[Rfam]
RNA sequence: CUUGAGGGAGCCGAGCCAUAGGGGCCGGUCGGCGGGGCGGCCCUGGCCGUAGGUCGCCAGGAGGGCCUGCGCCUC
Numbered sequence: 001c002u003u004g005a006g007g008g009a010g011c012c013g014a015g016c017c018a019u020a021g022g023g024g025c026c027g028g029u030c031g032g033c034g035g036g037g038c039g040g041c042c043c044u045g046g047c048c049g050u051a052g053g054u055c056g057c058c059a060g061g062a063g064g065g066c067c068u069g070c071g072c073c074u075c
Stems, first nucleotide, its partner, number of pairs: 015025003032070002038065001043060003047056001049054001
Dot-bracket structure: ..............(((.....)))......((....(....(((.(.(....).).)))....)...)).....
RNA: ASpks TB sRNA